[Rfam]
RNA sequence: CCCGAUCCUCGGUAGUGGCACUCAGGGCCUCGCUGACGUCGUUCAGCGUCCUGCAUGCCUCGAUCGAAGAUCGGA
Numbered sequence: 001c002c003c004g005a006u007c008c009u010c011g012g013u014a015g016u017g018g019c020a021c022u023c024a025g026g027g028c029c030u031c032g033c034u035g036a037c038g039u040c041g042u043u044c045a046g047c048g049u050c051c052u053g054c055a056u057g058c059c060u061c062g063a064u065c066g067a068a069g070a071u072c073g074g075a
Stems, first nucleotide, its partner, number of pairs: 002074006009067005017059004023053006
Shown here is a 75-nucleotide sequence from Nocardioides antri, a member of the family "Actino-pnp RNA". The family's consensus secondary structure is taken from published work.